[Rfam]
RNA: psaA RNA
Organism: Synechococcus sp. BL107
RNA sequence: CCUAUGCUUUUUUCAGCGGUCCCCUCUUUGGGGCCCCUGCUUCAGUGCAGUAAAGGGGUUUCGGCUUCCUUUAAGGCAUUGACGCCCGGCCACGACUCCCUUGCGGAGCUGUGCUCGGGGCCCCGACGAGCUUCGGUUCGCCGGAGGGGUGGCCCACCACCUCGAUCCCGUCCCUCGAGGAACGACUCGAUGA
Numbered sequence: 001c002c003u004a005u006g007c008u009u010u011u012u013u014c015a016g017c018g019g020u021c022c023c024c025u026c027u028u029u030g031g032g033g034c035c036c037c038u039g040c041u042u043c044a045g046u047g048c049a050g051u052a053a054a055g056g057g058g059u060u061u062c063g064g065c066u067u068c069c070u071u072u073a074a075g076g077c078a079u080u081g082a083c084g085c086c087c088g089g090c091c092a093c094g095a096c097u098c099c100c101u102u103g104c105g106g107a108g109c110u111g112u113g114c115u116c117g118g119g120g121c122c123c124c125g126a127c128g129a130g131c132u133u134c135g136g137u138u139c140g141c142c143g144g145a146g147g148g149g150u151g152g153c154c155c156a157c158c159a160c161c162u163c164g165a166u167c168c169c170g171u172c173c174c175u176c177g178a179g180g181a182a183c184g185a186c187u188c189g190a191u192g193a
Stems, first nucleotide, its partner, number of pairs: 018154003021149007030124007039085002042082007051073007058065002087117003091113004096108004125142001127140005160180006